[Rfam]
RNA sequence: UGCAAAAUAGGAUUUCGUGCGUCAAGUGUUCAACGGAUGGGGAGUUGCCGUCGAAACGAAAAGUAUGUCUUACGAUACGAAAUCCGCACCCAUUGCU
Number, nucleotide and partner (000 for none) at each position: 001u000002g096003c095004a094005a093006a000007a000008u000009a000010g085011g084012a083013u082014u081015u080016c079017g078018u077019g076020c074021g073022u072023c000024a000025a000026g057027u056028g000029u055030u054031c053032a000033a051034c050035g049036g048037a000038u000039g000040g091041g090042g089043a000044g087045u000046u000047g000048c036049c035050g034051u033052c000053g031054a030055a029056a027057c026058g000059a000060a000061a071062a070063g069064u000065a000066u000067g000068u000069c063070u062071u061072a022073c021074g020075a000076u019077a018078c017079g016080a015081a014082a013083u012084c011085c010086g000087c044088a000089c042090c041091c040092a000093u005094u004095g003096c002097u000
THF (Tetrahydrofolate) riboswitch aptamer: a 97-nucleotide RNA from Eubacterium aggregans. It scores 85 bits against the family's covariance model. For this family Rfam cites "A eubacterial riboswitch class that senses the coenzyme tetrahydrofolate" (Ames et al., Chem Biol, 2010). Rfam describes the family as follows. Tetrahydrofolate (THF) riboswitch was first reported for Ames et al. as an RNA motif in 5' untranslated (5'-UTR)regions of folate transport and biosynthesis genes in Firmicutes genomes. The source organism's lineage runs through Bacteria, Bacillota, Clostridia, Eubacteriales and Eubacterium. The family has 101 seed sequences and 747 matches in Rfam 15.1.